[Rfam]
RNA sequence: ACUUGUGAUAGAGGCGCGGCAUCCAGGAGUACGUUCCAUUAAACGACAGGCAUCGGGAACGGAAAGGGGCUGCCGCCGAGGUUUCCCCUGACAGCUGCCUGGCGGGGGGAUUCCGGGCCGUGGGAGAACAUCCUGCGGACUGUCAUCGCGCCGGUAACGGGCGAUGGAGUGCUAUCAUGAUC
Numbered sequence: 001a002c003u004u005g006u007g008a009u010a011g012a013g014g015c016g017c018g019g020c021a022u023c024c025a026g027g028a029g030u031a032c033g034u035u036c037c038a039u040u041a042a043a044c045g046a047c048a049g050g051c052a053u054c055g056g057g058a059a060c061g062g063a064a065a066g067g068g069g070c071u072g073c074c075g076c077c078g079a080g081g082u083u084u085c086c087c088c089u090g091a092c093a094g095c096u097g098c099c100u101g102g103c104g105g106g107g108g109g110a111u112u113c114c115g116g117g118c119c120g121u122g123g124g125a126g127a128a129c130a131u132c133c134u135g136c137g138g139a140c141u142g143u144c145a146u147c148g149c150g151c152c153g154g155u156a157a158c159g160g161g162c163g164a165u166g167g168a169g170u171g172c173u174a175u176c177a178u179g180a181u182c
Base pairs, nucleotide, nucleotide: 006177007176008175009174010173011172016076017075018074019073020072021071023069024068032061033060034059035058036057037056080114081113084110085109086108087107088106089104090103115141116140118138119137120136121135122134123133124132125131143167144166145165146164147163148162149161
Lysine riboswitch aptamer: a 182-nucleotide RNA from Oscillibacter hominis. The organism belongs to Oscillibacter, within Bacteria.